[Rfam]
RNA: Small nucleolar RNA SNORA68
Organism: Muntiacus reevesi
RNA sequence: AUGGCACCAAUUCCAGAAGUAUAUCAGCAAAAAUAAGCAAUACCACGGUUUAAACAGGGGUGCCAACAGCAAGUGGAUCUUAUUGCCUUUGGGGGGCUACAAUUGUGCCCCUCAAAGUGAAUUUGCAGGUUCUGUGUGC
Numbered sequence: 001a002u003g004g005c006a007c008c009a010a011u012u013c014c015a016g017a018a019g020u021a022u023a024u025c026a027g028c029a030a031a032a033a034u035a036a037g038c039a040a041u042a043c044c045a046c047g048g049u050u051u052a053a054a055c056a057g058g059g060g061u062g063c064c065a066a067c068a069g070c071a072a073g074u075g076g077a078u079c080u081u082a083u084u085g086c087c088u089u090u091g092g093g094g095g096g097c098u099a100c101a102a103u104u105g106u107g108c109c110c111c112u113c114a115a116a117g118u119g120a121a122u123u124u125g126c127a128g129g130u131u132c133u134g135u136g137u138g139c
Stems, first nucleotide, its partner, number of pairs: 002065007017050002075132006087117011